[Rfam]
RNA sequence: GGCACCGGAUGGUGUCUGCACCCAGCAGUGUGUUCCGGGGGGGUGUUCAGAAAGCAGGGCUACAGUAUUUCAGCAGCUGGCACUGGUGGUUUUCAUGCAGAUGUGCUGGCUAAACUUGGUAUUUCUGUUGAAACAAAG
Numbered sequence: 001g002g003c004a005c006c007g008g009a010u011g012g013u014g015u016c017u018g019c020a021c022c023c024a025g026c027a028g029u030g031u032g033u034u035c036c037g038g039g040g041g042g043g044u045g046u047u048c049a050g051a052a053a054g055c056a057g058g059g060c061u062a063c064a065g066u067a068u069u070u071c072a073g074c075a076g077c078u079g080g081c082a083c084u085g086g087u088g089g090u091u092u093u094c095a096u097g098c099a100g101a102u103g104u105g106c107u108g109g110c111u112a113a114a115c116u117u118g119g120u121a122u123u124u125c126u127g128u129u130g131a132a133a134c135a136a137a138g
Base pairs, nucleotide, nucleotide: 002060003059005057007055015053017051018046019045020044021043022042023041026038028036063127064126065125067123069121070119071118072117073116079107080106081105082104083103
Record summary:
The record is a 138-nucleotide RNA sequence from Corythaixoides concolor, which matches "Small nucleolar RNA SNORA8" in Rfam. The base pairs follow the family's consensus structure, which was predicted with RNAfold. The family's RNA type in Rfam is H/ACA-box small nucleolar RNA. The organism belongs to Corythaixoides, within Eukaryota. The match comes from Rfam's covariance-model search (75 bits). Rfam 15.1 lists 1,490 matches to the family in 610 species.